[Rfam]
RNA sequence: GGCAGUACCAGCGACAGAUAGGUGCGAAUCCUAUCCGCCGAAAGAGGAAGGGUUCCUCAGCAAUGAUUAUCAGCUGAGGGUUAGUCGGCCCUAAGUCCACUCCUAAUUGGACGUGGACGAACAGGUAAUCAGGUUAAUAUUCCUGAACCUCCUCACAUUACUGACGUCUCGGGAUAGUGGAAGCUGCGCCAUCGCGCAGUCCAAGCAGUUGAUGCGUGCGAGCGUAAUGCCUCGACCACGUGAAGCUGUUAUGGGUCUGGGAAUAAUCCCGGAUUUCCACGAUUCCUGGGACCUUUGAAAAAGUGUGAGAGACCGUACCAAGAACCAGCACAGGUCCUCAGGCUUCGUAGGCUAAGGCGUCU
Numbered sequence: 001g002g003c004a005g006u007a008c009c010a011g012c013g014a015c016a017g018a019u020a021g022g023u024g025c026g027a028a029u030c031c032u033a034u035c036c037g038c039c040g041a042a043a044g045a046g047g048a049a050g051g052g053u054u055c056c057u058c059a060g061c062a063a064u065g066a067u068u069a070u071c072a073g074c075u076g077a078g079g080g081u082u083a084g085u086c087g088g089c090c091c092u093a094a095g096u097c098c099a100c101u102c103c104u105a106a107u108u109g110g111a112c113g114u115g116g117a118c119g120a121a122c123a124g125g126u127a128a129u130c131a132g133g134u135u136a137a138u139a140u141u142c143c144u145g146a147a148c149c150u151c152c153u154c155a156c157a158u159u160a161c162u163g164a165c166g167u168c169u170c171g172g173g174a175u176a177g178u179g180g181a182a183g184c185u186g187c188g189c190c191a192u193c194g195c196g197c198a199g200u201c202c203a204a205g206c207a208g209u210u211g212a213u214g215c216g217u218g219c220g221a222g223c224g225u226a227a228u229g230c231c232u233c234g235a236c237c238a239c240g241u242g243a244a245g246c247u248g249u250u251a252u253g254g255g256u257c258u259g260g261g262a263a264u265a266a267u268c269c270c271g272g273a274u275u276u277c278c279a280c281g282a283u284u285c286c287u288g289g290g291a292c293c294u295u296u297g298a299a300a301a302a303g304u305g306u307g308a309g310a311g312a313c314c315g316u317a318c319c320a321a322g323a324a325c326c327a328g329c330a331c332a333g334g335u336c337c338u339c340a341g342g343c344u345u346c347g348u349a350g351g352c353u354a355a356g357g358c359g360u361c362u
Base pairs, nucleotide, nucleotide: 017035018034019033020032021031022030036359037358038357039356044339045338046337047336050319051318055079056078057077058076059075060074064072065071086315087314088313090125091124095118096117097116098115099114100113101111102110103109129146130145131144132143133142149311150310151309153308154307155306156305160304161303162302166292167291168290169289170288171287172286173285174284177280178279179278180277181276183200184199185198186197187196205249206248207247208246215240216239217238218237222233223229261268325334326333341353342352343351
Rfam assigns this 362-nucleotide part of an RNA from Nanohaloarchaea archaeon H01 to the family "Archaeal large subunit ribosomal RNA".